A member of the RNA family "Bacterial large signal recognition particle RNA" from Peptostreptococcus russellii, 265 nucleotides long. By type it is a non-coding RNA gene.
RNA sequence: CUGUACUAGAUGGAGAGUUAGCGGUGCUCUGUAACCCACAAUCCGCUUUAGUGGGGUUGAAUCCCAUCUGGAGGCAAAUUGUUUUUGAUGCAGUCCUAUGCAAGUAGUGUUGAUAUAUGGGUCCUAAGCAAUGGAAACUCAUGAAGUCCGUCAGGUUCGGAAGAAAGCAGCGGUAAGUGAUCAUUUUCAUGUGCCUUAGGGAAGCCUGUAAGGAGCCAACUACAUAGGCAACGGUUGGGGACAUUUGUCGAUAGAUGGUGUACAG
Numbered sequence: 001c002u003g004u005a006c007u008a009g010a011u012g013g014a015g016a017g018u019u020a021g022c023g024g025u026g027c028u029c030u031g032u033a034a035c036c037c038a039c040a041a042u043c044c045g046c047u048u049u050a051g052u053g054g055g056g057u058u059g060a061a062u063c064c065c066a067u068c069u070g071g072a073g074g075c076a077a078a079u080u081g082u083u084u085u086u087g088a089u090g091c092a093g094u095c096c097u098a099u100g101c102a103a104g105u106a107g108u109g110u111u112g113a114u115a116u117a118u119g120g121g122u123c124c125u126a127a128g129c130a131a132u133g134g135a136a137a138c139u140c141a142u143g144a145a146g147u148c149c150g151u152c153a154g155g156u157u158c159g160g161a162a163g164a165a166a167g168c169a170g171c172g173g174u175a176a177g178u179g180a181u182c183a184u185u186u187u188c189a190u191g192u193g194c195c196u197u198a199g200g201g202a203a204g205c206c207u208g209u210a211a212g213g214a215g216c217c218a219a220c221u222a223c224a225u226a227g228g229c230a231a232c233g234g235u236u237g238g239g240g241a242c243a244u245u246u247g248u249c250g251a252u253a254g255a256u257g258g259u260g261u262a263c264a265g
Stems, first nucleotide, its partner, number of pairs: 001265006009058003012030004017025003035055005064258007073249005080243009093229001096227005104220002107216002114212001116210007123200006129191002132189005139180004148173004156165003